[Rfam]
Shown here is an 81-nucleotide RNA from Cajanus cajan, a member of the family "Small nucleolar RNA Z199". By type it is a C/D-box small nucleolar RNA. Lineage of the source: Eukaryota > Streptophyta > Pentapetalae > fabids > Cajanus. About the family: snoZ199 is a C/D box small nucleolar RNA, which acts as a methylation guide RNA for sites on 18S and 25S rRNA. Rice snoZ199 is reported to be homologous to Arabidopsis snoR13. The match comes from Rfam's covariance-model search (52 bits). Rfam links the family to the GO terms nucleolus and RNA processing.
RNA sequence: UAUCAUCUGACGAGAAAACAACUGUAACAUUAUGAUUGAAUUUUUUCCAUGAUUCCUUGUAUUUGAGUAUAUAUGAUGAUA
Numbered sequence: 001u002a003u004c005a006u007c008u009g010a011c012g013a014g015a016a017a018a019c020a021a022c023u024g025u026a027a028c029a030u031u032a033u034g035a036u037u038g039a040a041u042u043u044u045u046u047c048c049a050u051g052a053u054u055c056c057u058u059g060u061a062u063u064u065g066a067g068u069a070u071a072u073a074u075g076a077u078g079a080u081a
Base pairs, nucleotide, nucleotide: 001081002080003079004078005077038047039046040045